RNA sequence: GCCGGUCCUCGGUAGUGGCCCCCGGUCAAGGUGAACCGGGCGCUUCGAUCGAAGACCGGC
Numbered sequence: 001g002c003c004g005g006u007c008c009u010c011g012g013u014a015g016u017g018g019c020c021c022c023c024g025g026u027c028a029a030g031g032u033g034a035a036c037c038g039g040g041c042g043c044u045u046c047g048a049u050c051g052a053a054g055a056c057c058g059g060c
Stems, first nucleotide, its partner, number of pairs: 001060007009052005017044003021040006

The record is a 60-nucleotide sequence from Acrocarpospora phusangensis, which matches "Actino-pnp RNA" in Rfam.
The match comes from Rfam's covariance-model search (63 bits).